[Rfam]
RNA: MIR2593 microRNA precursor family
Organism: Trifolium medium
RNA sequence: UUAUAAAUAAAAGUCAACUUUUCAGAUUCAUUGAGUAACUGAUGAAUCUGGUAUACAUUAUAGAGCAAAUACAUCAGUUAUUCAAUGAAUCUGAAAAGCGAACUUUUACUUAUAG
Numbered sequence: 001u002u003a004u005a006a007a008u009a010a011a012a013g014u015c016a017a018c019u020u021u022u023c024a025g026a027u028u029c030a031u032u033g034a035g036u037a038a039c040u041g042a043u044g045a046a047u048c049u050g051g052u053a054u055a056c057a058u059u060a061u062a063g064a065g066c067a068a069a070u071a072c073a074u075c076a077g078u079u080a081u082u083c084a085a086u087g088a089a090u091c092u093g094a095a096a097a098g099c100g101a102a103c104u105u106u107u108a109c110u111u112a113u114a115g
Base pairs, nucleotide, nucleotide: 002114003113004112005111006110009107010106011105012104013103014101015100018098019097020096021095022094023093024092025091027089028088029087030086031085032084033083034082035081036080037079038078039077040076041075042074043073044072049067050066052064